[Rfam]
RNA: c-di-AMP riboswitch aptamer (ydaO/yuaA leader)
Organism: Oerskovia sp. Root918
RNA sequence: UUGCGCGGAACGCCGAACCCUGUCACCGCGCGAGGAGCACCACGACCCGAUGACAGGGACGGGGGACCCAAAUUCGGGUACCGGAAACGGUGCCCUUGGGGUGAAGCCAGACGGACCUCGGUCCUGACGGCCGGGUGAUUCUCCCACCCGAACCCGACAGCUGACCUCGCAGGCGUCCAGGAGAGGUAUC
Number, nucleotide and partner (000 for none) at each position: 001u000002u000003g000004c000005g000006c000007g000008g000009a000010a000011c175012g174013c173014c172015g000016a000017a000018c058019c057020c056021u055022g054023u053024c052025a051026c000027c000028g000029c000030g000031c000032g000033a000034g000035g000036a000037g000038c000039a000040c000041c000042a000043c000044g000045a000046c000047c000048c000049g000050a000051u025052g024053a023054c022055a021056g020057g019058g018059a000060c169061g168062g167063g166064g165065g000066a000067c000068c000069c098070a097071a000072a000073u000074u000075c000076g000077g000078g000079u000080a000081c000082c000083g000084g000085a000086a000087a000088c000089g000090g000091u000092g000093c000094c000095c000096u000097u070098g069099g155100g154101g153102u000103g000104a000105a000106g000107c130108c129109a000110g000111a000112c000113g000114g000115a000116c000117c000118u000119c000120g000121g000122u000123c000124c000125u000126g000127a000128c000129g108130g107131c000132c000133g149134g148135g147136u146137g000138a000139u000140u000141c000142u000143c000144c000145c000146a136147c135148c134149c133150g000151a000152a000153c101154c100155c099156g000157a000158c000159a000160g000161c000162u000163g000164a000165c064166c063167u062168c061169g060170c000171a000172g014173g013174c012175g011176u000177c000178c000179a000180g000181g000182a000183g000184a000185g000186g000187u000188a000189u000190c000